[Rfam]
Nucleotides: 110
Base pairs, nucleotide, nucleotide: 010101011100012099013098014097015096016095017094018093019092020091021090022089023088024087025086026085027084028083029082030081032079033078
Number, partner (000 for none) and nucleotide at each position: 001000u002000u003000g004000u005000u006000u007000g008000c009000a010101g011100g012099u013098g014097c015096g016095g017094c018093a019092u020091c021090a022089u023088u024087a025086a026085g027084a028083u029082u030081c031000a032079c033078a034000u035000a036000c037000a038000a039000a040000u041000u042000u043000g044000u045000g046000g047000c048000c049000a050000a051000a052000a053000a054000a055000a056000a057000a058000a059000a060000a061000a062000a063000g064000c065000c066000u067000g068000c069000g070000u071000u072000u073000g074000a075000a076000g077000g078033u079032g080000a081030g082029a083028a084027u085026c086025u087024u088023g089022a090021u091020g092019a093018u094017g095016c096015u097014g098013c099012a100011u101010c102000g103000g104000c105000a106000a107000a108000u109000g110000g